RNA sequence: CAAAAGGGUGCUUGCCUCCUUAUGGUAAACGUGUCCUUAUUGGGCGCGUUGGGUAUGGUAAUCAAGACAUACCCAGCACGUAAUUUUUGUUACCGUGGGGCUGUUUUUUGGCAGUGAACCGAAGACGCCCCC
Numbered sequence: 001c002a003a004a005a006g007g008g009u010g011c012u013u014g015c016c017u018c019c020u021u022a023u024g025g026u027a028a029a030c031g032u033g034u035c036c037u038u039a040u041u042g043g044g045c046g047c048g049u050u051g052g053g054u055a056u057g058g059u060a061a062u063c064a065a066g067a068c069a070u071a072c073c074c075a076g077c078a079c080g081u082a083a084u085u086u087u088u089g090u091u092a093c094c095g096u097g098g099g100g101c102u103g104u105u106u107u108u109u110g111g112c113a114g115u116g117a118a119c120c121g122a123a124g125a126c127g128c129c130c131c132c
Stems, first nucleotide, its partner, number of pairs: 008079005013027004028050009051074007098130004103126005109121003112116001
Dot-bracket structure: .......(((((((((.......))))(((((((((.....)))))))))(((((((..........))))))))))))..................((((.(((((.((((...)..))))))))))))..